Overview:
Shown here is a 102-nucleotide RNA sequence from Populus tomentosa, a member of the family "MIR480 microRNA precursor family". A search with the family's covariance model found it, with a score of 66 bits. Pairs were carried over by alignment from the consensus structure, which was predicted with WAR.
Nucleotides: 102
Base pairs, nucleotide, nucleotide: 004100006098012091014089015088019084023081024080025079027076028075029074030073031072
Number, partner (000 for none) and nucleotide at each position: 001000u002000a003000a004100u005000c006098u007000a008000u009000u010000u011000a012091u013000g014089g015088u016000a017000g018000a019084u020000u021000u022000u023081u024080a025079u026000u027076u028075a029074g030073u031072u032000a033000u034000g035000a036000c037000a038000g039000a040000c041000u042000c043000a044000u045000a046000u047000u048000u049000g050000a051000c052000u053000g054000u055000u056000c057000a058000g059000a060000a061000u062000c063000a064000c065000u066000c067000a068000c069000g070000a071000g072031a073030a074029c075028u076027a077000a078000u079025g080024u081023a082000u083000a084019a085000a086000u087000a088015a089014u090000a091012a092000u093000u094000u095000u096000u097000c098006a099000a100004g101000a102000u